[Rfam]
RNA sequence: AGCCGAUGAUGAGCUCUUAAUUUUCUGACACCUCGUAUGAAAACUGGUUGCAGUUUACUGAUUACGAGCACGAGCUGAGGCUU
Numbered sequence: 001a002g003c004c005g006a007u008g009a010u011g012a013g014c015u016c017u018u019a020a021u022u023u024u025c026u027g028a029c030a031c032c033u034c035g036u037a038u039g040a041a042a043a044c045u046g047g048u049u050g051c052a053g054u055u056u057a058c059u060g061a062u063u064a065c066g067a068g069c070a071c072g073a074g075c076u077g078a079g080g081c082u083u
Stems, first nucleotide, its partner, number of pairs: 001082004043054004